Rfam assigns this 249-nucleotide part of an RNA from Fannyhessea vaginae to the family "Bacterial large subunit ribosomal RNA". NCBI's taxonomy places the organism under Bacteria, Bacillati, Coriobacteriales, Fannyhessea, Fannyhessea vaginae. Rfam 15.1 lists 51,934 matches to the family in 10,816 species. The family's consensus secondary structure is taken from published work.
RNA sequence: GGAAAAUUGAGGGAGGCUGCCCCUAGUACGAGAGGACCGGGGUGGACGGACCUCCGGUGUACGGGUUGUUAACCAAUAGCAUUGCCCGGUAGCUGAGUCCGGUUGGGAUAACCGCUGAAAGCAUCUAAGCGGGAAGCCCAUCCCAAGAUGAGUUUUCCUUUUGGUAAGACCCCUUGUAGACAACAAGGUGAUAGGCUUCAGGUGUACGUGUGGUAACGCACUUAGCCGAGAAGUACUAAUCGGUCGAGC
Numbered sequence: 001g002g003a004a005a006a007u008u009g010a011g012g013g014a015g016g017c018u019g020c021c022c023c024u025a026g027u028a029c030g031a032g033a034g035g036a037c038c039g040g041g042g043u044g045g046a047c048g049g050a051c052c053u054c055c056g057g058u059g060u061a062c063g064g065g066u067u068g069u070u071a072a073c074c075a076a077u078a079g080c081a082u083u084g085c086c087c088g089g090u091a092g093c094u095g096a097g098u099c100c101g102g103u104u105g106g107g108a109u110a111a112c113c114g115c116u117g118a119a120a121g122c123a124u125c126u127a128a129g130c131g132g133g134a135a136g137c138c139c140a141u142c143c144c145a146a147g148a149u150g151a152g153u154u155u156u157c158c159u160u161u162u163g164g165u166a167a168g169a170c171c172c173c174u175u176g177u178a179g180a181c182a183a184c185a186a187g188g189u190g191a192u193a194g195g196c197u198u199c200a201g202g203u204g205u206a207c208g209u210g211u212g213g214u215a216a217c218g219c220a221c222u223u224a225g226c227c228g229a230g231a232a233g234u235a236c237u238a239a240u241c242g243g244u245c246g247a248g249c
Stems, first nucleotide, its partner, number of pairs: 001158008011144004017045007047101005055095003062088005067081005105139003112132005165247001168245004172188005192238003195234005201227002208221005